[Rfam]
RNA sequence: ACUACAGACCGGGAUAUCGCGGGCUUUUUAUAAGCACGAGGAAAGUCCGGACAGCACAGGGCAGCUCACCACCUAACGGGUGGGGGCCGUUUCCGGAAGGAGCCGGCUACAGCAAGUGCCACAGAAAAUAACCACCCGGUUGUGUAUACGGCCGGGUACGGGUGAAAACGUAGGGUAAAAGCCUACGGCGGCGGCUGGCAACAACCGUCUGCGGGUAAACCUUGGGUGCUGAAAUGCCAAAUAGGCAUGCGUCCUGAUUUCGGUCCGGAGCGGGCGGCCCGUCCGAUGCAUGUGGGUUGGCAGCUACAGGCGGCGCGUGAGCGUCUCCGCAGAUAAAUGAUAUCCGGUCCCGUCUGGGAUCACAGAAUCCGGCUUACAGGUCUGUAGUGAUU
Numbered sequence: 001a002c003u004a005c006a007g008a009c010c011g012g013g014a015u016a017u018c019g020c021g022g023g024c025u026u027u028u029u030a031u032a033a034g035c036a037c038g039a040g041g042a043a044a045g046u047c048c049g050g051a052c053a054g055c056a057c058a059g060g061g062c063a064g065c066u067c068a069c070c071a072c073c074u075a076a077c078g079g080g081u082g083g084g085g086g087c088c089g090u091u092u093c094c095g096g097a098a099g100g101a102g103c104c105g106g107c108u109a110c111a112g113c114a115a116g117u118g119c120c121a122c123a124g125a126a127a128a129u130a131a132c133c134a135c136c137c138g139g140u141u142g143u144g145u146a147u148a149c150g151g152c153c154g155g156g157u158a159c160g161g162g163u164g165a166a167a168a169c170g171u172a173g174g175g176u177a178a179a180a181g182c183c184u185a186c187g188g189c190g191g192c193g194g195c196u197g198g199c200a201a202c203a204a205c206c207g208u209c210u211g212c213g214g215g216u217a218a219a220c221c222u223u224g225g226g227u228g229c230u231g232a233a234a235u236g237c238c239a240a241a242u243a244g245g246c247a248u249g250c251g252u253c254c255u256g257a258u259u260u261c262g263g264u265c266c267g268g269a270g271c272g273g274g275c276g277g278c279c280c281g282u283c284c285g286a287u288g289c290a291u292g293u294g295g296g297u298u299g300g301c302a303g304c305u306a307c308a309g310g311c312g313g314c315g316c317g318u319g320a321g322c323g324u325c326u327c328c329g330c331a332g333a334u335a336a337a338u339g340a341u342a343u344c345c346g347g348u349c350c351c352g353u354c355u356g357g358g359a360u361c362a363c364a365g366a367a368u369c370c371g372g373c374u375u376a377c378a379g380g381u382c383u384g385u386a387g388u389g390a391u392u
Stems, first nucleotide, its partner, number of pairs: 001388010011377001012345007020038002023035004043375003047372005052231004059280004064227005069083005084110001085108004111222002116220002118216003132161002134157009169187006189211001190209005196203002235302004245293006271285005309328002312325005
RNA: Bacterial RNase P class A
Organism: Sphingobacteriales bacterium